[Rfam]
RNA sequence: GUAGUCGUAUUCACAUCAAUCCACAUGUGUUGAGGUGGAUUGAAGUGGAACUUGAACUAAAUUCCACCCUAACCCACACCAACAUAUAUGAAUUGAAGUGAAUCCGACA
Number, nucleotide and partner (000 for none) at each position: 001g000002u000003a000004g108005u107006c106007g105008u000009a103010u102011u101012c100013a099014c098015a000016u096017c095018a094019a093020u092021c000022c090023a089024c000025a087026u086027g085028u084029g083030u082031u081032g080033a000034g000035g077036u076037g075038g074039a000040u072041u071042g070043a000044a000045g067046u066047g065048g000049a000050a000051c000052u000053u000054g000055a000056a000057c000058u000059a000060a000061a000062u000063u000064c000065c047066a046067c045068c000069c000070u042071a041072a040073c000074c038075c037076a036077c035078a000079c000080c032081a031082a030083c029084a028085u027086a026087u025088a000089u023090g022091a000092a020093u019094u018095g017096a016097a000098g014099u013100g012101a011102a010103u009104c000105c007106g006107a005108c004109a000
RNA: MIR5565 microRNA precursor family
Organism: Sorghum bicolor